[Rfam]
RNA sequence: AUACUUCAUUUUUUAUACUUUAAUUUCCUCUAUACCUCACUUUUAUUGGAGAAAAAAGAGAAUAGAAAAUAGUGGAUUUCUCUUCUUUUUUUCAAUCAAAGGGAGUUGUAGGGGAAAAGUUUAGAAAAUGGCGUGU
Numbered sequence: 001a002u003a004c005u006u007c008a009u010u011u012u013u014u015a016u017a018c019u020u021u022a023a024u025u026u027c028c029u030c031u032a033u034a035c036c037u038c039a040c041u042u043u044u045a046u047u048g049g050a051g052a053a054a055a056a057a058g059a060g061a062a063u064a065g066a067a068a069a070u071a072g073u074g075g076a077u078u079u080c081u082c083u084u085c086u087u088u089u090u091u092u093c094a095a096u097c098a099a100a101g102g103g104a105g106u107u108g109u110a111g112g113g114g115a116a117a118a119g120u121u122u123a124g125a126a127a128a129u130g131g132c133g134u135g136u
Stems, first nucleotide, its partner, number of pairs: 025116010036105003040101004045096003049093006056084007
Dot-bracket structure: ........................((((((((((.(((.((((.(((.((((((.(((((((...............)))))))...))))))))).)))).))).))))))))))....................
The record is a 136-nucleotide sequence from Glycine max, which matches "MIR2119 microRNA precursor family" in Rfam. Rfam's curators put it in the seed alignment. Pairs were carried over by alignment from the consensus structure, which was predicted with RNAalifold. Taxonomically the source falls in Glycine subgen. Soja (Eukaryota, Viridiplantae, Spermatophyta, Papilionoideae).